RNA sequence: UUGAAGUUCCAUCUAUUAAUGGAUAAGGUUUUUCUGCUAACAUAUAAGAACUUUUCAAGAAAGAAAGGACAGAAAUACCUAAUAUCUUGUUCUAGUAAGAUAUUGGGUAUUUCUAUCUU
Numbered sequence: 001u002u003g004a005a006g007u008u009c010c011a012u013c014u015a016u017u018a019a020u021g022g023a024u025a026a027g028g029u030u031u032u033u034c035u036g037c038u039a040a041c042a043u044a045u046a047a048g049a050a051c052u053u054u055u056c057a058a059g060a061a062a063g064a065a066a067g068g069a070c071a072g073a074a075a076u077a078c079c080u081a082a083u084a085u086c087u088u089g090u091u092c093u094a095g096u097a098a099g100a101u102a103u104u105g106g107g108u109a110u111u112u113c114u115a116u117c118u119u
Stems, first nucleotide, its partner, number of pairs: 008023005066119004071114008080105003084101005
RNA: Plastid-psbA-1 3UTR RNA